[Rfam]
RNA sequence: AACAUCGUCGUCGGGAGAACCAGCACAGCUGGUGCCGAAGGAGCAACCGCCCCGGAAACUCUCAGGCAAAUGGACCGACACGGUUAC
Numbered sequence: 001a002a003c004a005u006c007g008u009c010g011u012c013g014g015g016a017g018a019a020c021c022a023g024c025a026c027a028g029c030u031g032g033u034g035c036c037g038a039a040g041g042a043g044c045a046a047c048c049g050c051c052c053c054g055g056a057a058a059c060u061c062u063c064a065g066g067c068a069a070a071u072g073g074a075c076c077g078a079c080a081c082g083g084u085u086a087c
Base pairs, nucleotide, nucleotide: 006082007081008080010079011078012077013076014075020032021031022030023029034067035066036065037063038062041061042060043059047055048054
The family of this 87-nucleotide RNA from Sulfitobacter guttiformis is "Glycine riboswitch aptamer". It scores 55 bits against the family's covariance model. The pairing is the family consensus, mapped onto this sequence. The organism belongs to Sulfitobacter, within Bacteria. About the family: This family represents the bacterial glycine riboswitch. Glycine riboswitches usually consist of two metabolite-binding aptamers domains with similar structures in tandem. The aptamers cooperatively bind glycine to regulate the expression of downstream genes. In Bacillus subtilis, this riboswitch is found upstream of the gcvT operon which controls glycine degradation.